[Rfam]
RNA: Manganese Mn2+ riboswitch aptamer (yybP-ykoY)
Organism: Alphaproteobacteria bacterium PA2
RNA sequence: CCGACCGCGUCACUGGGGAGUAGCCGUCCGCGCGUUUCAGCGGAGGGUGCGUCAACAAACUUGGACCGGAAUUGCUUCCGGGACAUGGCGCAUCCAGCCUUUCGGGCCUGGCGAGACUUUUGGCUUUCGUGUGUCGUUCCCAGGCGGGAUCGGCGGCGCGGAGAGCCAUUGGUCCUGUUCCGAUCCCGCCGUGAGC
Numbered sequence: 001c002c003g004a005c006c007g008c009g010u011c012a013c014u015g016g017g018g019a020g021u022a023g024c025c026g027u028c029c030g031c032g033c034g035u036u037u038c039a040g041c042g043g044a045g046g047g048u049g050c051g052u053c054a055a056c057a058a059a060c061u062u063g064g065a066c067c068g069g070a071a072u073u074g075c076u077u078c079c080g081g082g083a084c085a086u087g088g089c090g091c092a093u094c095c096a097g098c099c100u101u102u103c104g105g106g107c108c109u110g111g112c113g114a115g116a117c118u119u120u121u122g123g124c125u126u127u128c129g130u131g132u133g134u135c136g137u138u139c140c141c142a143g144g145c146g147g148g149a150u151c152g153g154c155g156g157c158g159c160g161g162a163g164a165g166c167c168a169u170u171g172g173u174c175c176u177g178u179u180c181c182g183a184u185c186c187c188g189c190c191g192u193g194a195g196c
Stems, first nucleotide, its partner, number of pairs: 028043003045095010062085002101195003